This 101-nucleotide sequence from Gammaproteobacteria bacterium ESL0073 belongs to the Rfam family "Glycine riboswitch aptamer". The source organism's lineage runs through Bacteria, Pseudomonadati, Pseudomonadota and Gammaproteobacteria. This family represents the bacterial glycine riboswitch. Glycine riboswitches usually consist of two metabolite-binding aptamers domains with similar structures in tandem. The aptamers cooperatively bind glycine to regulate the expression of downstream genes. A search with the family's covariance model found it, with a score of 47 bits. Its family is annotated with glycine biosynthetic process in the Gene Ontology.

RNA sequence: UUACUAGGUGUAGGAGAGUGGAACUUUAACUCCCGCCGAAGGCGCAUACUCCCAUAAUCGCUCAGGCCUUAUCUAAAGAUAAUAAUAACUGCAUCUGAAUA
Numbered sequence: 001u002u003a004c005u006a007g008g009u010g011u012a013g014g015a016g017a018g019u020g021g022a023a024c025u026u027u028a029a030c031u032c033c034c035g036c037c038g039a040a041g042g043c044g045c046a047u048a049c050u051c052c053c054a055u056a057a058u059c060g061c062u063c064a065g066g067c068c069u070u071a072u073c074u075a076a077a078g079a080u081a082a083u084a085a086u087a088a089c090u091g092c093a094u095c096u097g098a099a100u101a
Base pairs, nucleotide, nucleotide: 006096007095008094009093010092011091012090013089020033021032022031035067036066037065038063039062042061043060044059048055